Rfam assigns this 131-nucleotide RNA sequence from Nothoprocta perdicaria to the family "Small Cajal body specific RNA 15". It is annotated as a small Cajal body RNA. Lineage of the source: Eukaryota > Sarcopterygii > Sauria > Dinosauria > Nothoprocta. From the family's description: scaRNAs are a specific class of small nuclear RNAs which localise to the Cajal bodies and guide the modification of RNA polymerase II transcribed spliceosomal RNAs U1, U2, U4, U5 and U12. ACA45 belongs to the H/ACA box class of guide RNAs as it has the predicted hairpin-hinge-hairpin-tail structure, the conserved H/ACA-box motifs and is found associated with GAR1. ACA45 is predicted to guide the pseudouridylation of residue U37 of the U2 spliceosomal snRNA.

[Rfam]
RNA sequence: CCGGAGGACUAAGAAAGUGGAGCCAGUGAAAGCAUAUUGCCUCCGCUGAUACUCUCCUCCUACAUUAAACGGUGGAAGAACAAGGCCUGUCUGAAAGAUGGAGUCAGGACCUACUUCCUCUACCUACAAAG
Numbered sequence: 001c002c003g004g005a006g007g008a009c010u011a012a013g014a015a016a017g018u019g020g021a022g023c024c025a026g027u028g029a030a031a032g033c034a035u036a037u038u039g040c041c042u043c044c045g046c047u048g049a050u051a052c053u054c055u056c057c058u059c060c061u062a063c064a065u066u067a068a069a070c071g072g073u074g075g076a077a078g079a080a081c082a083a084g085g086c087c088u089g090u091c092u093g094a095a096a097g098a099u100g101g102a103g104u105c106a107g108g109a110c111c112u113a114c115u116u117c118c119u120c121u122a123c124c125u126a127c128a129a130a131g
Stems, first nucleotide, its partner, number of pairs: 003060006010051002018045005024039001026035003071124006078117001083112003086108004